Notes:
mir-172 microRNA precursor family: a 91-nucleotide RNA sequence from Musa troglodytarum. Gene Ontology terms of the family: miRNA-mediated post-transcriptional gene silencing and RISC complex. The base pairs follow the family's consensus structure, which was predicted with PFOLD. The match comes from Rfam's covariance-model search (82 bits). mir-172 has been experimentally verified in Arabidopsis thaliana. This family is thought to target mRNAs coding for APETALA2-like transcription factors.
RNA sequence: GUGUUUGCAGGCGUGGCAUCAUCAAGAUUCACAUGGAUUACACAGCUGUUUUGAUCAGUGAGAAUCUUGAUGAUGCUGCAUCGGCAAAUAC
Numbered sequence: 001g002u003g004u005u006u007g008c009a010g011g012c013g014u015g016g017c018a019u020c021a022u023c024a025a026g027a028u029u030c031a032c033a034u035g036g037a038u039u040a041c042a043c044a045g046c047u048g049u050u051u052u053g054a055u056c057a058g059u060g061a062g063a064a065u066c067u068u069g070a071u072g073a074u075g076c077u078g079c080a081u082c083g084g085c086a087a088a089u090a091c
Base pairs, nucleotide, nucleotide: 010082011081013079014078015077016076017075018074019073020072021071022070023069024068025067026066027065028064029063030062032060033059